[Rfam]
RNA: Y RNA
RNA sequence: GGCUGGUUCAAAGGUAUUGAGUUAUCUCACUUUAUUGUUCAUAGUCAGUUACAGAUUGAACUUGUUCUACUCUAUCCCACCUUCUCACUACUGCCCUUGACUCAUCUUAA
Numbered sequence: 001g002g003c004u005g006g007u008u009c010a011a012a013g014g015u016a017u018u019g020a021g022u023u024a025u026c027u028c029a030c031u032u033u034a035u036u037g038u039u040c041a042u043a044g045u046c047a048g049u050u051a052c053a054g055a056u057u058g059a060a061c062u063u064g065u066u067c068u069a070c071u072c073u074a075u076c077c078c079a080c081c082u083u084c085u086c087a088c089u090a091c092u093g094c095c096c097u098u099g100a101c102u103c104a105u106c107u108u109a110a
Base pairs, nucleotide, nucleotide: 001106002105005102006101007100008099010098011097014094015093016089018087019086020085021084044071047068048067